[Rfam]
mir-317 microRNA precursor family: an 89-nucleotide RNA sequence from Notodromas monacha. Lineage of the source: Eukaryota > Eumetazoa > Oligostraca > Cypridocopina > Notodromas.

RNA sequence: GGCUUCUGGACCUGGGAACCACUCUGGGUUCGCAUUGGAUUUUAUUGACAUGUGAACACAGCAGGUGGUAUCUCAGAUCCCGUUGCUCG
Numbered sequence: 001g002g003c004u005u006c007u008g009g010a011c012c013u014g015g016g017a018a019c020c021a022c023u024c025u026g027g028g029u030u031c032g033c034a035u036u037g038g039a040u041u042u043u044a045u046u047g048a049c050a051u052g053u054g055a056a057c058a059c060a061g062c063a064g065g066u067g068g069u070a071u072c073u074c075a076g077a078u079c080c081c082g083u084u085g086c087u088c089g
Base pairs, nucleotide, nucleotide: 008080009079010078012076015074016072017071018069019068021066022065023064024061025060026059028057030055031054
Dot-bracket structure: .......(((.(..(((((.((((((.(.((......................)).).)))..))).)).)).).).))).........